[Rfam]
RNA sequence: AGGCAGUGACGAUAAACACAGUCAUGCACCACUCUGAUUCAAUCAGUGCUGACAAUUGACAUAUAACCCAUAUUUAUCUGAGCCU
Numbered sequence: 001a002g003g004c005a006g007u008g009a010c011g012a013u014a015a016a017c018a019c020a021g022u023c024a025u026g027c028a029c030c031a032c033u034c035u036g037a038u039u040c041a042a043u044c045a046g047u048g049c050u051g052a053c054a055a056u057u058g059a060c061a062u063a064u065a066a067c068c069c070a071u072a073u074u075u076a077u078c079u080g081a082g083c084c085u
Base pairs, nucleotide, nucleotide: 001085002084003083004082
Small nucleolar RNA Z221/R21b: an 85-nucleotide RNA sequence from Phoenix dactylifera. Rfam 15.1 lists 588 matches to the family in 222 species. The base pairs follow the family's consensus structure, which was predicted with WAR. A search with the family's covariance model found it, with a score of 67 bits. Its family is annotated with RNA processing and nucleolus in the Gene Ontology.